[Rfam]
RNA: Purine riboswitch aptamer
RNA sequence: GUCACACACAUAGUAAUUGCCUAUAUAAUGCCAAGAUGUGGUUGGUCAGUUUCUACCCGGAACCGUAUAAGUCCGGACUAUAAGCAAAAGAAAUUGAAAG
Numbered sequence: 001g002u003c004a005c006a007c008a009c010a011u012a013g014u015a016a017u018u019g020c021c022u023a024u025a026u027a028a029u030g031c032c033a034a035g036a037u038g039u040g041g042u043u044g045g046u047c048a049g050u051u052u053c054u055a056c057c058c059g060g061a062a063c064c065g066u067a068u069a070a071g072u073c074c075g076g077a078c079u080a081u082a083a084g085c086a087a088a089a090g091a092a093a094u095u096g097a098a099a100g
Stems, first nucleotide, its partner, number of pairs: 018086003022082004029048002031045004057076005